[Rfam]
RNA sequence: GUUCCCAAUGAUGCUUGAAAUGAAACCAUGCUAAUGCUGAUUGUUCAGUGAUUAAAAAUAAUUCAUUUGAUUUAUUUUGAGGGAACU
Numbered sequence: 001g002u003u004c005c006c007a008a009u010g011a012u013g014c015u016u017g018a019a020a021u022g023a024a025a026c027c028a029u030g031c032u033a034a035u036g037c038u039g040a041u042u043g044u045u046c047a048g049u050g051a052u053u054a055a056a057a058a059u060a061a062u063u064c065a066u067u068u069g070a071u072u073u074a075u076u077u078u079g080a081g082g083g084a085a086c087u
Base pairs, nucleotide, nucleotide: 001086002085003084004083005082